[Rfam]
RNA sequence: UUACAUAUUUCAUUCUAUUACAAAGAAUUGAGAGGCUAACACAGGAGGGUAAAGAAAGUCUCCAUAUAACCCAGAGAAGAGAUUUUUAGAACUCCUCUCUGGAUCCUGUCUGGAGUCACAACU
Numbered sequence: 001u002u003a004c005a006u007a008u009u010u011c012a013u014u015c016u017a018u019u020a021c022a023a024a025g026a027a028u029u030g031a032g033a034g035g036c037u038a039a040c041a042c043a044g045g046a047g048g049g050u051a052a053a054g055a056a057a058g059u060c061u062c063c064a065u066a067u068a069a070c071c072c073a074g075a076g077a078a079g080a081g082a083u084u085u086u087u088a089g090a091a092c093u094c095c096u097c098u099c100u101g102g103a104u105c106c107u108g109u110c111u112g113g114a115g116u117c118a119c120a121a122c123u
Stems, first nucleotide, its partner, number of pairs: 002051003006047001008045003016038002019035001021032001058117001060115005071102007079094003083091002
RNA: Small nucleolar RNA SNORA26